[Rfam]
RNA: SucA RNA motif
Organism: Simplicispira metamorpha
RNA sequence: UCGCAUCCGCCAAUCGGUUCAGCCGUGUCGCGGAAGGUUUCUUAAACCAGCUAAUGCUUUCUCCAGGAAAGCUGAGGUCAGCG
Numbered sequence: 001u002c003g004c005a006u007c008c009g010c011c012a013a014u015c016g017g018u019u020c021a022g023c024c025g026u027g028u029c030g031c032g033g034a035a036g037g038u039u040u041c042u043u044a045a046a047c048c049a050g051c052u053a054a055u056g057c058u059u060u061c062u063c064c065a066g067g068a069a070a071g072c073u074g075a076g077g078u079c080a081g082c083g
Stems, first nucleotide, its partner, number of pairs: 002083003006034005015025004036048004050078003056072007